[Rfam]
RNA sequence: CCAAAGGCUCUUUUCAGAGCCACUUAAGUUAUCGGGGAAAGUGGCU
Numbered sequence: 001c002c003a004a005a006g007g008c009u010c011u012u013u014u015c016a017g018a019g020c021c022a023c024u025u026a027a028g029u030u031a032u033c034g035g036g037g038a039a040a041g042u043g044g045c046u
Stems, first nucleotide, its partner, number of pairs: 006021006